[Rfam]
RNA: mir-277 microRNA precursor family
Organism: Trichonephila clavata
RNA sequence: AGCUUCAGUACCUCCGUUCCAGAAGUGCGUUUACAUGCGUGUCUCUAGAUAUCUGUAAAUGCAUUUUCUGGAAUGUAAGGUGCCGUUGC
Numbered sequence: 001a002g003c004u005u006c007a008g009u010a011c012c013u014c015c016g017u018u019c020c021a022g023a024a025g026u027g028c029g030u031u032u033a034c035a036u037g038c039g040u041g042u043c044u045c046u047a048g049a050u051a052u053c054u055g056u057a058a059a060u061g062c063a064u065u066u067u068c069u070g071g072a073a074u075g076u077a078a079g080g081u082g083c084c085g086u087u088g089c
Stems, first nucleotide, its partner, number of pairs: 008083004015075009025064001027062009